[Rfam]
RNA sequence: CUUGUCACCGCGCUCGUUCUACUACAACCCGUAGGCAAGGACGGGGGACCCACAUUCGGGUGCUGCUCGCAGCAUCCUCGGGGUGAAGCCACCGGACCUCGGUCCGGAGGCCGGGUGUUUCUCCUACCCGAACCCGACAGCUGACCUCGUAGGCGACUUGGAGAGAACGU
Dot-bracket structure: ((((((...........................)))))).((((((....(............................)(((.....((.((((........)))).))..((((.........))))...))).........))))))....................